Shown here is a 102-nucleotide sequence from Melghiribacillus thermohalophilus, a member of the family "Purine riboswitch aptamer". Pairs were carried over by alignment from the consensus structure, which is taken from published work. NCBI's taxonomy places the organism under Bacteria, Bacilli, Caryophanales, Bacillaceae, Melghiribacillus. From the family's description: Riboswitches are metabolite binding domains within certain messenger RNAs that serve as precision sensors for their corresponding targets. On this family, see Mandal et al., Cell 2003: "Riboswitches Control Fundamental Biochemical Pathways in Bacillus subtilis and Other Bacteria".
[Rfam]
RNA sequence: UCAAGCAAAACCUAUCACCGUCGUAUAAUUUUGGGGAUAUGGCCCAGAAGUUUCUACCAGAUCACCGUAAAUGAUCUGACUACGGGGGUGAAUUGCAUAAAU
Dot-bracket structure: .................((.(((((...(((((((.......)))))))........(((((((.......)))))))..))))).))..............